[Rfam]
Nucleotides: 109
Base pairs, nucleotide, nucleotide: 002104003103004102005101006100007099012093013092014091015090017089018088019087020086025085026084027083
Number, partner (000 for none) and nucleotide at each position: 001000g002104c003103g004102c005101u006100g007099g008000u009000u010000u011000a012093g013092c014091u015090c016000a017089g018088u019087g020086g021000u022000u023000a024000c025085u026084u027083c028000c029000u030000c031000u032000g033000a034000u035000a036000u037000a038000u039000c040000a041000u042000u043000a044000c045000c046000u047000g048000c049000a050000a051000u052000g053000a054000u055000c056000c057000u058000c059000a060000g061000a062000u063000c064000u065000u066000c067000c068000c069000c070000g071000u072000c073000a074000c075000a076000g077000g078000g079000g080000a081000u082000c083027g084026a085025a086020c087019c088018a089017c090015g091014g092013g093012u094000g095000c096000u097000g098000u099007c100006c101005a102004g103003u104002g105000u106000u107000u108000u109000u